Rfam assigns this 77-nucleotide RNA from Python bivittatus to the family "Small nucleolar RNA SNORD19". For this family Rfam cites "RNomics: an experimental approach that identifies 201 candidates for novel, small, non-messenger RNAs in mouse" (Huttenhofer et al., EMBO J, 2001). The pairing is the family consensus, mapped onto this sequence.

RNA sequence: GAGCUGUGAGGAAGCCACAAAAACUUGCUGACCUGCAUCUGGAGACGGUCAGAUCCAACUCUGAGCUCACUGUUCUU
Numbered sequence: 001g002a003g004c005u006g007u008g009a010g011g012a013a014g015c016c017a018c019a020a021a022a023a024c025u026u027g028c029u030g031a032c033c034u035g036c037a038u039c040u041g042g043a044g045a046c047g048g049u050c051a052g053a054u055c056c057a058a059c060u061c062u063g064a065g066c067u068c069a070c071u072g073u074u075c076u077u
Base pairs, nucleotide, nucleotide: 001068002067003066004065